[Rfam]
The record is a 69-nucleotide sequence from Ketobacter sp., which matches "int-alpA RNA" in Rfam. Lineage of the source: Bacteria > Pseudomonadati > Pseudomonadota > Gammaproteobacteria > Ketobacter. Acidobacteria (1 example), Planctomycetes (1 example), Proteobacteria. The family's consensus secondary structure is taken from published work. Rfam classes the family as a small RNA.

RNA sequence: GCCAACCCUAGGGUCGCUCCUGAAAGGCCGGACACCUUCACCGGCAUGGGUUGGCUCAAUUUCGGAACC
Numbered sequence: 001g002c003c004a005a006c007c008c009u010a011g012g013g014u015c016g017c018u019c020c021u022g023a024a025a026g027g028c029c030g031g032a033c034a035c036c037u038u039c040a041c042c043g044g045c046a047u048g049g050g051u052u053g054g055c056u057c058a059a060u061u062u063c064g065g066a067a068c069c
Base pairs, nucleotide, nucleotide: 001055002054003053004052005051006050007049008048011021012020013019027045028044029043030042031041037067038066039065